The record is a 383-nucleotide RNA sequence from cyanobacterium endosymbiont of Rhopalodia gibberula, which matches "Bacterial RNase P class A" in Rfam.
[Rfam]
RNA sequence: AGAGUUAGCGAGGGAGUUGCGGAUUCGUUCUUGAGGCGAAUUCGAGGAAAGUCCGGGCUUCCUAAAGACCAAACUUGCUGGGUAAUUCCCAGUACGCGUGAGCGUGAGGAUAGUGCCACAGAAAAAUACCGCAUUUUUUGGGUUUCAUCUAAAAAAUGUAAGGGUGCAAAGGUGCGGUAAGAGCGCACCAGCAGCAUCGUGAGAUGCUGGCUCGGUAAACCCCGGUAGGAAGCAAGGUCGGAGGAACUAAGGUUGGUCUUUUCCCCGUUCCGUUAUUGGAGAACCGCUUGAGGCGUUUGGUAACAAGUGUCCCAGAUAGAUAACUCCCCCUAUAGGACCAAUAUUCUAUAGGAACAGAACCCGGCUUAUGUCUAACUCUUUCC
Numbered sequence: 001a002g003a004g005u006u007a008g009c010g011a012g013g014g015a016g017u018u019g020c021g022g023a024u025u026c027g028u029u030c031u032u033g034a035g036g037c038g039a040a041u042u043c044g045a046g047g048a049a050a051g052u053c054c055g056g057g058c059u060u061c062c063u064a065a066a067g068a069c070c071a072a073a074c075u076u077g078c079u080g081g082g083u084a085a086u087u088c089c090c091a092g093u094a095c096g097c098g099u100g101a102g103c104g105u106g107a108g109g110a111u112a113g114u115g116c117c118a119c120a121g122a123a124a125a126a127u128a129c130c131g132c133a134u135u136u137u138u139u140g141g142g143u144u145u146c147a148u149c150u151a152a153a154a155a156a157u158g159u160a161a162g163g164g165u166g167c168a169a170a171g172g173u174g175c176g177g178u179a180a181g182a183g184c185g186c187a188c189c190a191g192c193a194g195c196a197u198c199g200u201g202a203g204a205u206g207c208u209g210g211c212u213c214g215g216u217a218a219a220c221c222c223c224g225g226u227a228g229g230a231a232g233c234a235a236g237g238u239c240g241g242a243g244g245a246a247c248u249a250a251g252g253u254u255g256g257u258c259u260u261u262u263c264c265c266c267g268u269u270c271c272g273u274u275a276u277u278g279g280a281g282a283a284c285c286g287c288u289u290g291a292g293g294c295g296u297u298u299g300g301u302a303a304c305a306a307g308u309g310u311c312c313c314a315g316a317u318a319g320a321u322a323a324c325u326c327c328c329c330c331u332a333u334a335g336g337a338c339c340a341a342u343a344u345u346c347u348a349u350a351g352g353a354a355c356a357g358a359a360c361c362c363g364g365c366u367u368a369u370g371u372c373u374a375a376c377u378c379u380u381u382c383c
Stems, first nucleotide, its partner, number of pairs: 001379008011369001012328007020044009049367003053364005058232004067265001073226002076224002078092005093107001094105004108222002113220002115216003129163002131159012171189006191211001192209007236285003248275003256270001259267001292311008

About the family: Ribonuclease P (RNase P) is a ubiquitous endoribonuclease, found in archaea, bacteria and eukarya as well as chloroplasts and mitochondria. Its best characterised activity is the generation of mature 5'-ends of tRNAs by cleaving the 5'-leader elements of precursor-tRNAs. Cellular RNase Ps are ribonucleoproteins. RNA from bacterial RNase Ps retains its catalytic activity in the absence of the protein subunit, i.e. it is a ribozyme. Isolated eukaryotic and archaeal RNase P RNA has not been shown to retain its catalytic function, but is still essential for the catalytic activity of the holoenzyme. Although the archaeal and eukaryotic holoenzyme s have a much greater protein content than the bacterial ones, the RNA cores from all the three lineages are homologous -- helices corresponding to P1, P2, P3, P4, and P10/11 are common to all cellular RNase P RNAs. Yet, there is considerable sequence variation, particularly among the eukaryotic RNAs. Identified in Yersinia as Ysr151/RnpB.